[Rfam]
RNA: Metazoan signal recognition particle RNA
RNA sequence: GCCGGGCGCAGUGGCGUGCGCCUGUAAUCCAAGCUACUGGGAGGCUGAGGCUGGCGGACCGCUUGAGCUCAGGGGUUCUGGGCUGCAGUGGACUAUGCCGAUCGGGUGUCCGCACUAAGUUCGGUAUCGAUAUGGUGCUCCUGGGGGAGCCUUGGACUACCAGGUCGUCUAAGGAGGGGUGAACCGGCCCAGGUCGGAGACGGAGCAGGUCAAAGCCCCCGUGCCGAUCAGUAGUGGGAUCGCGCCUGUGAAUAGACACUGCAGUGCAGCCUGAGUAAUACAGCGGGACUCAGUCUU
Numbered sequence: 001g002c003c004g005g006g007c008g009c010a011g012u013g014g015c016g017u018g019c020g021c022c023u024g025u026a027a028u029c030c031a032a033g034c035u036a037c038u039g040g041g042a043g044g045c046u047g048a049g050g051c052u053g054g055c056g057g058a059c060c061g062c063u064u065g066a067g068c069u070c071a072g073g074g075g076u077u078c079u080g081g082g083c084u085g086c087a088g089u090g091g092a093c094u095a096u097g098c099c100g101a102u103c104g105g106g107u108g109u110c111c112g113c114a115c116u117a118a119g120u121u122c123g124g125u126a127u128c129g130a131u132a133u134g135g136u137g138c139u140c141c142u143g144g145g146g147g148a149g150c151c152u153u154g155g156a157c158u159a160c161c162a163g164g165u166c167g168u169c170u171a172a173g174g175a176g177g178g179g180u181g182a183a184c185c186g187g188c189c190c191a192g193g194u195c196g197g198a199g200a201c202g203g204a205g206c207a208g209g210u211c212a213a214a215g216c217c218c219c220c221g222u223g224c225c226g227a228u229c230a231g232u233a234g235u236g237g238g239a240u241c242g243c244g245c246c247u248g249u250g251a252a253u254a255g256a257c258a259c260u261g262c263a264g265u266g267c268a269g270c271c272u273g274a275g276u277a278a279u280a281c282a283g284c285g286g287g288a289c290u291c292a293g294u295c296u297u
Base pairs, nucleotide, nucleotide: 001045002044003043004023005022006021007020008019009018010017028042029041030040047297048296049295050294051293052292053291054290059286060285061284062283063282067276068275069274070273071272072271073270078269079268080267082265083264084263085262086261087260088259089258090257093255094254095253096252098250103248104247105246106245107244108243109242110238111237113236114235115234116233117232119229121227122226123225124224125223126222127221128167129166130165131164133162134161135160136159137158139156140155141154143152144151145150168174169173176219177218178217179216180215186211187210188209189208194203195202196201